[Rfam]
RNA sequence: AAAAAUCUUACUAUUAUAUUUGUAACAAAUUUUAUACAUAAGAUAAAUUCGUAUGUAUAGCCGUUCUGCUCGAAACGGUGUAGCAUUGGAAGCGUUCCAUGGUACUAUGAAUUGUAGCGGGGGAGAGUCGCCCCAUAACAGGCUUGGAGGUACUCUGUGCGGGUACUUUGUUAACGCUAAAAGUAGAAAGUAAGCUACUGCGGGACUUCUAGGGCGGAGUUUAGAAGAGUAGGCGAAUUAGUCUGCGACAAAGUAAGU
Number, nucleotide and partner (000 for none) at each position: 001a000002a000003a000004a000005a000006u000007c194008u193009u192010a191011c190012u189013a000014u000015u000016a000017u000018a000019u000020u000021u000022g000023u000024a000025a000026c000027a000028a000029a000030u000031u000032u000033u059034a058035u057036a056037c055038a054039u053040a052041a000042g000043a000044u000045a000046a000047a000048u000049u000050c000051g000052u040053a039054u038055g037056u036057a035058u034059a033060g000061c078062c077063g076064u075065u074066c000067u000068g000069c000070u000071c000072g000073a000074a065075a064076c063077g062078g061079u000080g105081u104082a103083g000084c101085a100086u099087u000088g098089g097090a096091a000092g000093c000094g000095u000096u090097c089098c088099a086100u085101g084102g000103u082104a081105c080106u000107a000108u000109g000110a000111a000112u000113u000114g000115u000116a000117g000118c000119g134120g133121g132122g131123g000124a000125g145126a144127g143128u142129c141130g000131c122132c121133c120134c119135a000136u000137a000138a000139c000140a000141g129142g128143c127144u126145u125146g000147g000148a000149g000150g000151u000152a220153c219154u218155c217156u216157g215158u000159g000160c000161g000162g000163g000164u255165a254166c253167u252168u251169u250170g249171u248172u247173a000174a000175c202176g201177c200178u000179a000180a000181a000182a199183g198184u197185a196186g195187a000188a000189a012190g011191u010192a009193a008194g007195c186196u185197a184198c183199u182200g177201c176202g175203g000204g000205a000206c227207u226208u225209c224210u223211a222212g000213g000214g000215c157216g156217g155218a154219g153220u152221u000222u211223a210224g209225a208226a207227g206228a000229g246230u245231a244232g243233g242234c241235g000236a000237a000238u000239u000240a000241g234242u233243c232244u231245g230246c229247g172248a171249c170250a169251a168252a167253g166254u165255a164256a000257g000258u000